RNA sequence: UGCAAAUGAUGCCAAUCUCACGAUGGUCUGCUGAGCCUGCUGCAGGCCUGACGACACUGCCACAUGGCUUUACUGAUGCAGGUGA
Number, nucleotide and partner (000 for none) at each position: 001u080002g079003c078004a077005a000006a000007u000008g000009a000010u000011g000012c000013c000014a000015a000016u000017c000018u000019c000020a000021c000022g000023a000024u000025g000026g000027u000028c000029u000030g000031c000032u000033g000034a000035g000036c000037c000038u000039g000040c000041u000042g000043c000044a000045g000046g000047c000048c000049u000050g000051a000052c000053g000054a000055c000056a000057c000058u000059g000060c000061c000062a000063c000064a000065u000066g000067g000068c000069u000070u000071u000072a000073c000074u000075g000076a000077u004078g003079c002080a001081g000082g000083u000084g000085a000
Background
Small nucleolar RNA SNORD35: an 85-nucleotide RNA sequence from Origma solitaria. From the family's description: U35 is a C/D box snoRNA located in intron 6 of ribosomal protein L13A and intron 3 of ribosomal protein S11 in humans and at homologous positions in mouse and chicken ribosomal protein genes. U35 guides the methylation of 2'-O-ribose sites in 28S rRNA. The family's consensus secondary structure was predicted with PFOLD. Rfam classes the family as a C/D-box small nucleolar RNA. Taxonomically the source falls in Origma (Eukaryota, Sauropsida, Archelosauria, Saurischia).